[Rfam]
RNA sequence: GCAUUGGUUUAGCUCACUGGUUACUUCCUUAAAUCUUUCAGAUUACGUGGUUCUCUCCCUUCCUGGGAUCAAACCUAGGGCGCUGUCCAGUGUUUUC
Numbered sequence: 001g002c003a004u005u006g007g008u009u010u011a012g013c014u015c016a017c018u019g020g021u022u023a024c025u026u027c028c029u030u031a032a033a034u035c036u037u038u039c040a041g042a043u044u045a046c047g048u049g050g051u052u053c054u055c056u057c058c059c060u061u062c063c064u065g066g067g068a069u070c071a072a073a074c075c076u077a078g079g080g081c082g083c084u085g086u087c088c089a090g091u092g093u094u095u096u097c
Stems, first nucleotide, its partner, number of pairs: 002092006012081004018077003025072002029068001

Shown here is a 97-nucleotide RNA from Liparis tanakae, a member of the family "Vault RNA".
From the family's description: This family of RNAs are found as part of the enigmatic vault ribonucleoprotein complex. The complex consists of a major vault protein (MVP), two minor vault proteins (VPARP and TEP1), and several small untranslated RNA molecules. It has been suggested that the vault complex is involved in drug resistance.
The match comes from Rfam's covariance-model search (49 bits).
A reference for the family is Stadler et al. (2009), "Evolution of Vault RNAs", Mol Biol Evol.